[Rfam]
RNA sequence: GGUUUCUUUUGGUAUAAAUCAAAUCGGAUUUAAGAUAAGAAAAAAUUUCCUAUUGGUAGCGAAUGUUAUCCAUUUAGCAGGAAAUCUUAU
Numbered sequence: 001g002g003u004u005u006c007u008u009u010u011g012g013u014a015u016a017a018a019u020c021a022a023a024u025c026g027g028a029u030u031u032a033a034g035a036u037a038a039g040a041a042a043a044a045a046u047u048u049c050c051u052a053u054u055g056g057u058a059g060c061g062a063a064u065g066u067u068a069u070c071c072a073u074u075u076a077g078c079a080g081g082a083a084a085u086c087u088u089a090u
Base pairs, nucleotide, nucleotide: 009023010022012020050080051079052073053072055070056069057068058067059066

The family of this 90-nucleotide RNA sequence from Alternanthera philoxeroides is "Plastid-rps12 3UTR RNA". Plastid rpl20 is a non-coding RNA (ncRNA) recognised in plastids. It was found in the three prime untranslated region (3UTR) of rps12 gene, its 3UTR location sugest a role in transcript maduration. Rfam classes the family as a cis-regulatory element. Lineage of the source: Eukaryota > Streptophytina > Embryophyta > Euphyllophyta > Alternanthera. Rfam's curators put it in the seed alignment. The base pairs follow the family's consensus structure, which was predicted with LocARNA.